[Rfam]
RNA sequence: GUGAGGUCACCGCCGAGUCGGCUUGGGGGAGCCGAGCCGGGGAUCCAACCAGAUCCCUUGGGGUGAAUCCGGCGAUGUGUUCUUGCCGAACACGUCAUCCGGUAGGGCUAGUUCCGGCCCGAACCCGUCAGCUAACCCGGUAGGCGGCCCGGAGCUAGAAG
Numbered sequence: 001g002u003g004a005g006g007u008c009a010c011c012g013c014c015g016a017g018u019c020g021g022c023u024u025g026g027g028g029g030a031g032c033c034g035a036g037c038c039g040g041g042g043a044u045c046c047a048a049c050c051a052g053a054u055c056c057c058u059u060g061g062g063g064u065g066a067a068u069c070c071g072g073c074g075a076u077g078u079g080u081u082c083u084u085g086c087c088g089a090a091c092a093c094g095u096c097a098u099c100c101g102g103u104a105g106g107g108c109u110a111g112u113u114c115c116g117g118c119c120c121g122a123a124c125c126c127g128u129c130a131g132c133u134a135a136c137c138c139g140g141u142a143g144g145c146g147g148c149c150c151g152g153a154g155c156u157a158g159a160a161g
Base pairs, nucleotide, nucleotide: 011146012145013144014143018035019034020033021032022031023030024029036141037140038139039138040137041136046060047059061126062125063124069102070101071100072099105120106119107118108117
This 161-nucleotide RNA from Pseudonocardiaceae bacterium YIM PH 21723 belongs to the Rfam family "c-di-AMP riboswitch aptamer (ydaO/yuaA leader)".
The organism belongs to Pseudonocardiaceae, within Bacteria.
It scores 81 bits against the family's covariance model.